[Rfam]
RNA sequence: CCAUGGGCUCGCGCCCAUGGCUACAUCUGCCGUCCCUUCGGGACU
Number, nucleotide and partner (000 for none) at each position: 001c020002c019003a018004u017005g016006g015007g014008c013009u000010c000011g000012c000013g008014c007015c006016c005017a004018u003019g002020g001021c000022u000023a000024c000025a000026u000027c000028u000029g000030c000031c000032g044033u043034c042035c041036c040037u000038u000039c000040g036041g035042g034043a033044c032045u000

The record is a 45-nucleotide RNA sequence from Roseimaritima ulvae, which matches "Acido-Lenti-1 RNA" in Rfam. A search with the family's covariance model found it, with a score of 44 bits.